Source information
FMN riboswitch aptamer (RFN element): a 133-nucleotide sequence from Dialister sp. CAG:588. The family has 146 seed sequences and 6,230 matches in Rfam 15.1. The base pairs follow the family's consensus structure, which is taken from published work. The source organism's lineage runs through Bacteria, Bacillati, Negativicutes, Veillonellales and Dialister.
RNA sequence: AUUUCUCUUCAGGGCAAGGUGUAACUCCUUACCGGUGGUAAAGCCCACGAGCCAUGUGCUGAUUUGGUGAAACUCCAAAGCCGACAGUAAUAGAAUAUAUAUAUUCUUAAGUCUGGAUGAAAGAUAGAGGAAA
Numbered sequence: 001a002u003u004u005c006u007c008u009u010c011a012g013g014g015c016a017a018g019g020u021g022u023a024a025c026u027c028c029u030u031a032c033c034g035g036u037g038g039u040a041a042a043g044c045c046c047a048c049g050a051g052c053c054a055u056g057u058g059c060u061g062a063u064u065u066g067g068u069g070a071a072a073c074u075c076c077a078a079a080g081c082c083g084a085c086a087g088u089a090a091u092a093g094a095a096u097a098u099a100u101a102u103a104u105u106c107u108u109a110a111g112u113c114u115g116g117a118u119g120a121a122a123g124a125u126a127g128a129g130g131a132a133a
Base pairs, nucleotide, nucleotide: 003131004130005129006128007127008126009124010123017029018028019027033083034082035048036047037046038045043081044080051059052058063079064078065077066076067075085115086114087113